RNA sequence: UCUCGUGGCUAGUACUCUGGCUGCGAAUUGUGUGUCGUGUAGUCACAUCACAGUCAGAGUUCUAGCUACGCGG
Numbered sequence: 001u002c003u004c005g006u007g008g009c010u011a012g013u014a015c016u017c018u019g020g021c022u023g024c025g026a027a028u029u030g031u032g033u034g035u036c037g038u039g040u041a042g043u044c045a046c047a048u049c050a051c052a053g054u055c056a057g058a059g060u061u062c063u064a065g066c067u068a069c070g071c072g073g
Stems, first nucleotide, its partner, number of pairs: 004070003009065004014060004021053003025049002030046003

mir-11 microRNA precursor family: a 73-nucleotide RNA from Trichoplusia ni. It scores 67 bits against the family's covariance model. The base pairs follow the family's consensus structure, which was predicted with RNAalifold.